[Rfam]
RNA sequence: UGCAGUCUUGUCAAAUUCAGUGUUUCCUCUUCAAUGGACAGCACUGGCCAAAAUGGCUGCAACAGUGAACAAGUAGACUUCAGGACCUACCUUCACAUAGAAUGAAUACCAGGGACAUACAAGUCUGCUUACAUGC
Numbered sequence: 001u002g003c004a005g006u007c008u009u010g011u012c013a014a015a016u017u018c019a020g021u022g023u024u025u026c027c028u029c030u031u032c033a034a035u036g037g038a039c040a041g042c043a044c045u046g047g048c049c050a051a052a053a054u055g056g057c058u059g060c061a062a063c064a065g066u067g068a069a070c071a072a073g074u075a076g077a078c079u080u081c082a083g084g085a086c087c088u089a090c091c092u093u094c095a096c097a098u099a100g101a102a103u104g105a106a107u108a109c110c111a112g113g114g115a116c117a118u119a120c121a122a123g124u125c126u127g128c129u130u131a132c133a134u135g136c
Base pairs, nucleotide, nucleotide: 002060003059004058005057018046019045020044021043022042023041024040027037028036073128074127075126076125077124078123086113087112088111

Small nucleolar RNA SNORA5: a 136-nucleotide RNA sequence from Danio rerio. The match comes from Rfam's covariance-model search (51 bits). It is annotated as an H/ACA-box small nucleolar RNA. The family has 6 seed sequences and 2,226 matches in Rfam 15.1. Its family is annotated with nucleolus and RNA processing in the Gene Ontology. Rfam describes the family as follows. ACA5 is a member of the H/ACA class of snoRNA that guide the sites of modification of uridines to pseudouridines. NCBI's taxonomy places the organism under Eukaryota, Craniata, Euteleostomi, Cypriniphysae, Danio.